[Rfam]
RNA sequence: GAUCAAGAAGUUCGACGUCAAGCCUCUCAGCUCGUCGACUGGCAACCGCGUAUCGCACACGGUGCCACUGAGGGAAGAUCGGCCCCCGAGCGAUCGCUCGGGUGGAAGCAAGCGAU
Numbered sequence: 001g002a003u004c005a006a007g008a009a010g011u012u013c014g015a016c017g018u019c020a021a022g023c024c025u026c027u028c029a030g031c032u033c034g035u036c037g038a039c040u041g042g043c044a045a046c047c048g049c050g051u052a053u054c055g056c057a058c059a060c061g062g063u064g065c066c067a068c069u070g071a072g073g074g075a076a077g078a079u080c081g082g083c084c085c086c087c088g089a090g091c092g093a094u095c096g097c098u099c100g101g102g103u104g105g106a107a108g109c110a111a112g113c114g115a116u
Stems, first nucleotide, its partner, number of pairs: 001080004009040001012038005021032002041066003046062003050058002083105002086102001087100005

Notes:
Shown here is a 116-nucleotide RNA sequence from Flaviflexus salsibiostraticola, a member of the family "SAM (S-adenosyl methionine) riboswitch aptamer". Its family is annotated with regulation of gene expression and S-adenosylmethionine metabolic process in the Gene Ontology. Lineage of the source: Bacteria > Bacillati > Actinomycetes > Actinomycetales > Flaviflexus. It scores 64 bits against the family's covariance model. SAM-IV is a mRNA element that regulates gene expression via direct sensing of S-adenosylmethionine (SAM or AdoMet). SAM-IV riboswitches share conserved nucleotide positions with the previously described SAM-I riboswitches sequence analysis and molecular recognition experiments suggest that SAM-I and SAM-IV riboswitches share similar ligand binding sites, but have different scaffolds.